[Rfam]
RNA sequence: UCCUGAGCAAUUGGGAAUCUGAAGGCAAAAUGUGGAUUUGACGUACAGGAAGUAGAUAUUAGGCCUAAGCCUGGGGGUAAGCUUGCAUUGGAAGAUGACGCCCAAAAUCCAUCCGUAACCGAGCAAGGGUAAAUCUGACGAAUCCACAGGAAAGAAG
Numbered sequence: 001u002c003c004u005g006a007g008c009a010a011u012u013g014g015g016a017a018u019c020u021g022a023a024g025g026c027a028a029a030a031u032g033u034g035g036a037u038u039u040g041a042c043g044u045a046c047a048g049g050a051a052g053u054a055g056a057u058a059u060u061a062g063g064c065c066u067a068a069g070c071c072u073g074g075g076g077g078u079a080a081g082c083u084u085g086c087a088u089u090g091g092a093a094g095a096u097g098a099c100g101c102c103c104a105a106a107a108u109c110c111a112u113c114c115g116u117a118a119c120c121g122a123g124c125a126a127g128g129g130u131a132a133a134u135c136u137g138a139c140g141a142a143u144c145c146a147c148a149g150g151a152a153a154g155a156a157g
Base pairs, nucleotide, nucleotide: 001016002015003014004013005012006011026154031148032147033146034145035144036143037142038141039140040139053137054136055135056134057133063130064129065128069124070123072121073120074119075103076102077101078100081096083094084093
RNA: Group II catalytic intron D1-D4-3
Organism: Microscilla sp. PRE1